RNA sequence: AAAGGAGGCGAGGCGACCGCGGCACGGCCGAGUUUGCUCGGCGCGUGCUGAGGAAAGUCCGGGCUCCCCCAUGGCCAGGCCUGCUGGGUAACGCCCAGUGCGGGUGACCGUGAGGAUAGUGCCACAGAAACACACCGCCGAUGGCCCCGGCUUUUGCCCCGGCACAGGUAAGGGUGCAAAGGUGCGGUAAGAGCGCACCAGCAGCAUCGAGAGGUGCUGGCUCGGUAAACCCCAGCCGGGAGCAAGGCGAAGAACCAAGGUUGGCCAUGUGCCGGUUCUGCUCAAACAUGCCGCUUGAGGCCUGUGGUAACACAGGUCCUAGAGAGAUGGUCGCCCCUGGGGAGGAAUGCAUUCCAUGGAGACCUCCCCAGGAACAGAACCCGGCUUAUGUCCUGCUUUCCAC
Numbered sequence: 001a002a003a004g005g006a007g008g009c010g011a012g013g014c015g016a017c018c019g020c021g022g023c024a025c026g027g028c029c030g031a032g033u034u035u036g037c038u039c040g041g042c043g044c045g046u047g048c049u050g051a052g053g054a055a056a057g058u059c060c061g062g063g064c065u066c067c068c069c070c071a072u073g074g075c076c077a078g079g080c081c082u083g084c085u086g087g088g089u090a091a092c093g094c095c096c097a098g099u100g101c102g103g104g105u106g107a108c109c110g111u112g113a114g115g116a117u118a119g120u121g122c123c124a125c126a127g128a129a130a131c132a133c134a135c136c137g138c139c140g141a142u143g144g145c146c147c148c149g150g151c152u153u154u155u156g157c158c159c160c161g162g163c164a165c166a167g168g169u170a171a172g173g174g175u176g177c178a179a180a181g182g183u184g185c186g187g188u189a190a191g192a193g194c195g196c197a198c199c200a201g202c203a204g205c206a207u208c209g210a211g212a213g214g215u216g217c218u219g220g221c222u223c224g225g226u227a228a229a230c231c232c233c234a235g236c237c238g239g240g241a242g243c244a245a246g247g248c249g250a251a252g253a254a255c256c257a258a259g260g261u262u263g264g265c266c267a268u269g270u271g272c273c274g275g276u277u278c279u280g281c282u283c284a285a286a287c288a289u290g291c292c293g294c295u296u297g298a299g300g301c302c303u304g305u306g307g308u309a310a311c312a313c314a315g316g317u318c319c320u321a322g323a324g325a326g327a328u329g330g331u332c333g334c335c336c337c338u339g340g341g342g343a344g345g346a347a348u349g350c351a352u353u354c355c356a357u358g359g360a361g362a363c364c365u366c367c368c369c370a371g372g373a374a375c376a377g378a379a380c381c382c383g384g385c386u387u388a389u390g391u392c393c394u395g396c397u398u399u400c401c402a403c
Stems, first nucleotide, its partner, number of pairs: 001399004006394003011389001012335007020050007055387003059384005064242004073272001076269001078237003082234002084098005099113001100111004114232002119230002121226003135173002137169003142164002145161001181199006201221001202219007246292004255280001263277004299318008
RNA: Bacterial RNase P class A
Organism: Candidatus Synechococcus spongiarum